Source information:
tRNA: an 85-nucleotide RNA sequence from Sediminihaliea albiluteola. Gene Ontology term of the family: triplet codon-amino acid adaptor activity. Pairs were carried over by alignment from the consensus structure, which is taken from published work.
[Rfam]
RNA sequence: GGUGAGGUGGCCGAGUGGUCGAAGGCGCACGCCUGGAAAGCGUGUAACGGGCAACCGUUCGAGAGUUCGAAUCUCUCCCUCACCG
Numbered sequence: 001g002g003u004g005a006g007g008u009g010g011c012c013g014a015g016u017g018g019u020c021g022a023a024g025g026c027g028c029a030c031g032c033c034u035g036g037a038a039a040g041c042g043u044g045u046a047a048c049g050g051g052c053a054a055c056c057g058u059u060c061g062a063g064a065g066u067u068c069g070a071a072u073c074u075c076u077c078c079c080u081c082a083c084c085g
Base pairs, nucleotide, nucleotide: 001084002083003082004081005080006079007078010026011025012024028044029043030042031041032040061077062076063075064074065073